[Rfam]
RNA sequence: CCAGACGGCCGGGCGGUCGCGGCGGGCCAGGAGAGAUCCUGUCUCGUCGAGGAAAGUCCGGGCUCCACGGUGAAAAGGCGGCGGAUAACUUCCGCCCGGGGUGACCCGAGGGACAGCGCCACAGAAAGCAAACCGCCUUCUUCGGAAGGUAAGGGUGAAAGGGUGGGGUAAGAGCCCACCGCGUCUUCGGCAACGCAGACGGCACGGCAAGCCCCGCCUGGAGCAAGACCGAAUAGGGACGUCGCGCGGCCUCGGCCGCAGGGCUCACCGCCUGGGACGUCCGGGUAGGUCGCGAGAACCGGUCAGCAAUGGCCGGUCCAGAGGAAUGAUCGUCGCCGGUCUUCGGACCGGAACAGAACCCGGCUUACAGGCCGUCUGGCAUU
Numbered sequence: 001c002c003a004g005a006c007g008g009c010c011g012g013g014c015g016g017u018c019g020c021g022g023c024g025g026g027c028c029a030g031g032a033g034a035g036a037u038c039c040u041g042u043c044u045c046g047u048c049g050a051g052g053a054a055a056g057u058c059c060g061g062g063c064u065c066c067a068c069g070g071u072g073a074a075a076a077g078g079c080g081g082c083g084g085a086u087a088a089c090u091u092c093c094g095c096c097c098g099g100g101g102u103g104a105c106c107c108g109a110g111g112g113a114c115a116g117c118g119c120c121a122c123a124g125a126a127a128g129c130a131a132a133c134c135g136c137c138u139u140c141u142u143c144g145g146a147a148g149g150u151a152a153g154g155g156u157g158a159a160a161g162g163g164u165g166g167g168g169u170a171a172g173a174g175c176c177c178a179c180c181g182c183g184u185c186u187u188c189g190g191c192a193a194c195g196c197a198g199a200c201g202g203c204a205c206g207g208c209a210a211g212c213c214c215c216g217c218c219u220g221g222a223g224c225a226a227g228a229c230c231g232a233a234u235a236g237g238g239a240c241g242u243c244g245c246g247c248g249g250c251c252u253c254g255g256c257c258g259c260a261g262g263g264c265u266c267a268c269c270g271c272c273u274g275g276g277a278c279g280u281c282c283g284g285g286u287a288g289g290u291c292g293c294g295a296g297a298a299c300c301g302g303u304c305a306g307c308a309a310u311g312g313c314c315g316g317u318c319c320a321g322a323g324g325a326a327u328g329a330u331c332g333u334c335g336c337c338g339g340u341c342u343u344c345g346g347a348c349c350g351g352a353a354c355a356g357a358a359c360c361c362g363g364c365u366u367a368c369a370g371g372c373c374g375u376c377u378g379g380c381a382u383u
Base pairs, nucleotide, nucleotide: 001379002378003377004376005375006374007373008372009371010370011368012334013333014332015331016330017329018328020049021048022047023046024045025044026043028041029040030039031038054366055365056364058363059362060361061360062359063223064222065221066220072268076219077218078217079216080215081095082094083093084092085091096110097108098107099106100105111214112213116212117211118208119207120206133154134153135150136149137148138147139146140145162180163179164178165177166176167175181203182201183200184199185198186197188195189194227291228290229289230288237282238281239280240279241278242277261273262272263271264270298317299316300315301314302313303312304311305310
Shown here is a 383-nucleotide RNA from Brevundimonas abyssalis, a member of the family "Bacterial RNase P class A".
Its family is annotated with ribonuclease P activity, dimeric ribonuclease P complex and tRNA processing in the Gene Ontology.
Taxonomically the source falls in Brevundimonas abyssalis (Bacteria, Pseudomonadati, Pseudomonadota, Alphaproteobacteria).
From the family's description: Ribonuclease P (RNase P) is a ubiquitous endoribonuclease, found in archaea, bacteria and eukarya as well as chloroplasts and mitochondria.